[Rfam]
The record is an 87-nucleotide sequence from Actinoplanes sp. SE50/110, which matches "Glycine riboswitch aptamer" in Rfam. Pairs were carried over by alignment from the consensus structure. Rfam links the family to the GO term glycine biosynthetic process.
RNA sequence: GGGACCCGCGUGGGAGAGACCGAUCAUCGGCGCCGAAGAGGCAAAUCCUCCCCGGAAACUUUCAGGCAAACGGACCGCGCGGGCCAG
Numbered sequence: 001g002g003g004a005c006c007c008g009c010g011u012g013g014g015a016g017a018g019a020c021c022g023a024u025c026a027u028c029g030g031c032g033c034c035g036a037a038g039a040g041g042c043a044a045a046u047c048c049u050c051c052c053c054g055g056a057a058a059c060u061u062u063c064a065g066g067c068a069a070a071c072g073g074a075c076c077g078c079g080c081g082g083g084c085c086a087g
Stems, first nucleotide, its partner, number of pairs: 006082008020030004032067003035063002039061003046054001